The record is a 52-nucleotide sequence from Loxodonta africana, which matches "mir-1302 microRNA precursor family" in Rfam.
RNA sequence: UAUAUAGUAUAAAUAAGUUCCAUGCAAGAUUUGGGACAUACUUACACUAAAA
Dot-bracket structure: .....(((.(((.((..(((((........).))))..)).))).)))....